RNA sequence: AGAGCGGGGAUAGUGUGUAUCGGUGUUGUGCUGCGAUCAAUGCACCCUUCCGAAAGAGUUCCCCGCAAUAUCAUCUUGAGAGAAUGGGCAGUUGUGUUUCACUUCUCAUUGAAAAUCACAACAAUCAUUUUCCCUACACUU
Numbered sequence: 001a002g003a004g005c006g007g008g009g010a011u012a013g014u015g016u017g018u019a020u021c022g023g024u025g026u027u028g029u030g031c032u033g034c035g036a037u038c039a040a041u042g043c044a045c046c047c048u049u050c051c052g053a054a055a056g057a058g059u060u061c062c063c064c065g066c067a068a069u070a071u072c073a074u075c076u077u078g079a080g081a082g083a084a085u086g087g088g089c090a091g092u093u094g095u096g097u098u099u100c101a102c103u104u105c106u107c108a109u110u111g112a113a114a115a116u117c118a119c120a121a122c123a124a125u126c127a128u129u130u131u132c133c134c135u136a137c138a139c140u141u
Base pairs, nucleotide, nucleotide: 004066005065006064007063008062009061010060015045016044017043018042019041020040078134080132081131082130083129084128085127086126087125091122092121093120094119